The record is a 268-nucleotide RNA from Paenibacillus contaminans, which matches "Bacterial large signal recognition particle RNA" in Rfam. Rfam describes the family as follows. The signal recognition particle (SRP) is a universally conserved ribonucleoprotein involved in the co-translational targeting of proteins to membranes. Rfam links the family to the GO terms signal recognition particle, plasma membrane targeting and SRP-dependent cotranslational protein targeting to membrane, signal sequence recognition. Taxonomically the source falls in Paenibacillus (Bacteria, Bacillati, Bacillota, Caryophanales).

[Rfam]
RNA sequence: CCGCGCUAGACGGGGAGGUAGCGGUGCCCUGUAACCUGCAAUCCGCUAUAGCGGGGUUGAAUUCCUUGUUAGAGGUCCUGUCGAUGUAAGGUCUGACGCUUACACGUGGUGUUGACGGCCGGGUCCUCCGCAAUGGAUGCUCAUGAACCUGGUCAGGUCCGGAAGGAAGCAGCCAUAAGUGAGAUUUUUCAUGUGCCGGAGGGCAGCCUAGCCAGAGCUAACGAUAAGCGUUCCGCUUGGAUCGCAGCGAUCAAUAACAGGUGCGCGG
Numbered sequence: 001c002c003g004c005g006c007u008a009g010a011c012g013g014g015g016a017g018g019u020a021g022c023g024g025u026g027c028c029c030u031g032u033a034a035c036c037u038g039c040a041a042u043c044c045g046c047u048a049u050a051g052c053g054g055g056g057u058u059g060a061a062u063u064c065c066u067u068g069u070u071a072g073a074g075g076u077c078c079u080g081u082c083g084a085u086g087u088a089a090g091g092u093c094u095g096a097c098g099c100u101u102a103c104a105c106g107u108g109g110u111g112u113u114g115a116c117g118g119c120c121g122g123g124u125c126c127u128c129c130g131c132a133a134u135g136g137a138u139g140c141u142c143a144u145g146a147a148c149c150u151g152g153u154c155a156g157g158u159c160c161g162g163a164a165g166g167a168a169g170c171a172g173c174c175a176u177a178a179g180u181g182a183g184a185u186u187u188u189u190c191a192u193g194u195g196c197c198g199g200a201g202g203g204c205a206g207c208c209u210a211g212c213c214a215g216a217g218c219u220a221a222c223g224a225u226a227a228g229c230g231u232u233c234c235g236c237u238u239g240g241a242u243c244g245c246a247g248c249g250a251u252c253a254a255u256a257a258c259a260g261g262u263g264c265g266c267g268g
Stems, first nucleotide, its partner, number of pairs: 001268006009058003012030004017025001019023001035055005064261003068258004074252004082244004087239004095231001098229005106222002108219003117213003121209004125202006131193002134191004140183005150175004158167003